[Rfam]
RNA: RAGATH-18 RNA
RNA sequence: CCUACGGAGAGUACAAGAACUUGUAAUUAGUAGUAAUACGAAAGCAUACUCGUUGAAGUAGGAA
Numbered sequence: 001c002c003u004a005c006g007g008a009g010a011g012u013a014c015a016a017g018a019a020c021u022u023g024u025a026a027u028u029a030g031u032a033g034u035a036a037u038a039c040g041a042a043a044g045c046a047u048a049c050u051c052g053u054u055g056a057a058g059u060a061g062g063a064a
Base pairs, nucleotide, nucleotide: 001062002061003060004059005058009051010050011049012048013047022046023045024044030039031038032037